[Rfam]
RNA sequence: CAACAAACUAGGUGAUGCAGACCGAAAAGCAGAACUACGACUGCCUGUUUGUUGUUUUUAUUGGUCGUAG
Number, nucleotide and partner (000 for none) at each position: 001c054002a053003a052004c051005a050006a049007a048008c047009u000010a000011g023012g022013u021014g000015a000016u000017g000018c000019a000020g000021a013022c012023c011024g000025a000026a000027a000028a000029g044030c043031a042032g041033a000034a000035c070036u069037a068038c067039g066040a065041c032042u031043g030044c029045c000046u000047g008048u007049u006050u005051g004052u003053u002054g001055u000056u000057u000058u000059u000060a000061u000062u000063g000064g000065u040066c039067g038068u037069a036070g035